[Rfam]
This 162-nucleotide RNA sequence from Paraliobacillus ryukyuensis belongs to the Rfam family "Ribosomal protein L10 leader". This family is a putative r-protein leader autoregulatory structure found in B. subtilis and other low-GC Gram-positive bacteria. Taxonomically the source falls in Paraliobacillus (Bacteria, Bacillati, Bacillota, Caryophanales).
RNA sequence: UAAAACGAAUACGUUGUACCGUAGACAGUAGGGGCUUUAAAGGCUUAAAUUUUCCUACCGAGGUGUCUGAAUAUAAGAUAAUAUUGUAUAGUACAAUAUAUAUCAAACCAUUCUUACAAAACCUUCAUGUCUACCUUGUCAUGAAGGUUUUUUGUUUGGUAU
Numbered sequence: 001u002a003a004a005a006c007g008a009a010u011a012c013g014u015u016g017u018a019c020c021g022u023a024g025a026c027a028g029u030a031g032g033g034g035c036u037u038u039a040a041a042g043g044c045u046u047a048a049a050u051u052u053u054c055c056u057a058c059c060g061a062g063g064u065g066u067c068u069g070a071a072u073a074u075a076a077g078a079u080a081a082u083a084u085u086g087u088a089u090a091g092u093a094c095a096a097u098a099u100a101u102a103u104c105a106a107a108c109c110a111u112u113c114u115u116a117c118a119a120a121a122c123c124u125u126c127a128u129g130u131c132u133a134c135c136u137u138g139u140c141a142u143g144a145a146g147g148u149u150u151u152u153u154g155u156u157u158g159g160u161a162u
Base pairs, nucleotide, nucleotide: 028058029057030056031055032054033053034044035043036042122147123146124145125144126143127142128141129140131138
Dot-bracket structure: ...........................(((((((((.....)))........))))))...............................................................((((((((.(......).))))))))...............